[Rfam]
RNA: Bacterial large signal recognition particle RNA
RNA sequence: CCGUGCUAAGCGGGGAGGUAGCGGUGCCCUGUACUCGCAAUCCGCUAUAGCGAGGCCGAAUUCCUCUCUGAGGCUAUCGAUUUUCCUGGUCUGCCCUAAGUAAGUGGUGUUGACAUUUGGGUUCCGCGCAACGGAAUCCUGUGAACCCUGUCAGGUCCGGAAGGAAGCAGCAGUAAGCAGGUUCUUCCGUGUGCCGCGGAGUAGCCUGGAUCGAGCAAACUGCUUAGGUAACGCUUGAGGGUCUAUAGUCGAAGAGAGGUGCACGG
Number, nucleotide and partner (000 for none) at each position: 001c266002c265003g264004u263005g262006c261007u000008a000009a000010g056011c055012g030013g029014g028015g027016a000017g025018g000019u023020a000021g000022c000023g019024g000025u017026g000027c015028c014029c013030u012031g000032u000033a000034c054035u053036c052037g051038c050039a000040a000041u000042c000043c000044g000045c000046u000047a000048u000049a000050g038051c037052g036053a035054g034055g011056c010057c000058g000059a000060a000061u000062u000063c259064c258065u257066c256067u255068c254069u253070g000071a000072g250073g249074c248075u247076a246077u000078c000079g243080a242081u241082u240083u239084u238085c237086c000087u000088g234089g000090u000091c000092u230093g229094c000095c000096c227097u226098a225099a224100g223101u222102a000103a000104g220105u219106g000107g216108u215109g000110u000111u000112g000113a000114c000115a211116u210117u209118u208119g207120g206121g205122u204123u200124c199125c198126g197127c196128g195129c191130a190131a000132c189133g188134g187135a186136a185137u000138c181139c180140u179141g178142u177143g000144a000145a000146c000147c000148c173149u172150g171151u170152c000153a000154g000155g000156u165157c164158c163159g000160g000161a000162a000163g158164g157165a156166a000167g000168c000169a000170g151171c150172a149173g148174u000175a000176a000177g142178c141179a140180g139181g138182u000183u000184c000185u136186u135187c134188c133189g132190u130191g129192u000193g000194c000195c128196g127197c126198g125199g124200a123201g000202u000203a000204g122205c121206c120207u119208g118209g117210a116211u115212c000213g000214a000215g108216c107217a000218a000219a105220c104221u000222g101223c100224u099225u098226a097227g096228g000229u093230a092231a000232c000233g000234c088235u000236u000237g085238a084239g083240g082241g081242u080243c079244u000245a000246u076247a075248g074249u073250c072251g000252a000253a069254g068255a067256g066257a065258g064259g063260u000261g006262c005263a004264c003265g002266g001